[Rfam]
The family of this 65-nucleotide RNA from Desulforhabdus amnigena is "Fluoride riboswitch aptamer (crcB RNA motif)". Pairs were carried over by alignment from the consensus structure, which is taken from published work. The source organism's lineage runs through Bacteria, Pseudomonadati, Syntrophobacteria, Syntrophobacteraceae and Desulforhabdus. A search with the family's covariance model found it, with a score of 50 bits.
RNA sequence: GCAGACAGUGGUGAUGGAGUCCACCCCGCUAAUCGCCGAUCCUGGCUGAUGACUCCUACCAAGCC
Numbered sequence: 001g002c003a004g005a006c007a008g009u010g011g012u013g014a015u016g017g018a019g020u021c022c023a024c025c026c027c028g029c030u031a032a033u034c035g036c037c038g039a040u041c042c043u044g045g046c047u048g049a050u051g052a053c054u055c056c057u058a059c060c061a062a063g064c065c
Stems, first nucleotide, its partner, number of pairs: 010025004016056006035046004